[Rfam]
RNA sequence: GGUGAUGUAGCUCAGUUGGUAGAGCAAAGGACUGAAAAUCCUUGAGUCGGUGGUUCGAUUCCACUCAUCACCA
Numbered sequence: 001g002g003u004g005a006u007g008u009a010g011c012u013c014a015g016u017u018g019g020u021a022g023a024g025c026a027a028a029g030g031a032c033u034g035a036a037a038a039u040c041c042u043u044g045a046g047u048c049g050g051u052g053g054u055u056c057g058a059u060u061c062c063a064c065u066c067a068u069c070a071c072c073a
Stems, first nucleotide, its partner, number of pairs: 001072007010025004027043005049065005
Dot-bracket structure: (((((((..((((........)))).(((((.......))))).....(((((.......)))))))))))).
RNA: tRNA